[Rfam]
RNA sequence: AAAUAAAGAGGUGAUGGAGUUCACCUUUAAUUGCCAUUGUGCUGAUGGCUCCUGCUUUAUA
Numbered sequence: 001a002a003a004u005a006a007a008g009a010g011g012u013g014a015u016g017g018a019g020u021u022c023a024c025c026u027u028u029a030a031u032u033g034c035c036a037u038u039g040u041g042c043u044g045a046u047g048g049c050u051c052c053u054g055c056u057u058u059a060u061a
Base pairs, nucleotide, nucleotide: 010025011024012023013022016052017051018050019049020048021047033042034041